[Rfam]
RNA sequence: GCGAUGAGCUAAUUUGCGUAAGACGAGAUUGACUCGCCUUAAUCGGCAAGCACAAUGUGGAGUGUUGUCUCUCGCCGCAAAUAUGUCAAAAAAGACGUCCUAUUGGGCGUCUU
Number, nucleotide and partner (000 for none) at each position: 001g000002c000003g000004a000005u000006g000007a000008g000009c000010u000011a000012a000013u000014u080015u079016g078017c077018g076019u000020a000021a000022g000023a000024c074025g073026a072027g071028a070029u000030u000031g069032a068033c067034u000035c000036g047037c046038c000039u000040u000041a000042a000043u000044c000045g000046g037047c036048a000049a066050g065051c000052a063053c062054a000055a000056u000057g000058u000059g000060g000061a000062g053063u052064g000065u050066u049067g033068u032069c031070u028071c027072u026073c025074g024075c000076c018077g017078c016079a015080a014081a000082u000083a000084u000085g000086u000087c000088a000089a000090a000091a000092a113093a112094g111095a110096c109097g108098u107099c106100c105101u000102a000103u000104u000105g100106g099107g098108c097109g096110u095111c094112u093113u092
The family of this 113-nucleotide sequence from Evansella cellulosilytica is "BsrF".
A reference for the family is Saito et al. (2008), "Novel small RNA-encoding genes in the intergenic regions of Bacillus subtilis", Gene.
The family's RNA type in Rfam is small RNA.
NCBI's taxonomy places the organism under Bacteria, Bacillota, Caryophanales, Evansella, Evansella cellulosilytica.
Pairs were carried over by alignment from the consensus structure, which was predicted with WAR.